Rfam assigns this 83-nucleotide sequence to the family "Small nucleolar RNA U61". It is one of the family's seed sequences. The literature on the family includes a 2003 paper in Nucleic Acids Res by Brown et al., "Plant snoRNA database".
[Rfam]
RNA sequence: GGGCUGUGAGGAAAGAAAACCUUGUGCCGGAGGCGGAUGCGCCGGUGUCGGUAACACAAAAUCCUCUAAGAAGUUCUGAGCUC
Number, nucleotide and partner (000 for none) at each position: 001g083002g082003g081004c080005u000006g000007u000008g000009a000010g000011g000012a000013a000014a000015g000016a000017a000018a000019a000020c000021c000022u000023u000024g000025u000026g000027c000028c000029g000030g000031a000032g000033g000034c000035g000036g000037a000038u000039g000040c000041g000042c000043c000044g000045g000046u000047g000048u000049c000050g000051g000052u000053a000054a000055c000056a000057c000058a000059a000060a000061a000062u000063c000064c000065u000066c000067u000068a000069a000070g000071a000072a000073g000074u000075u000076c000077u000078g000079a000080g004081c003082u002083c001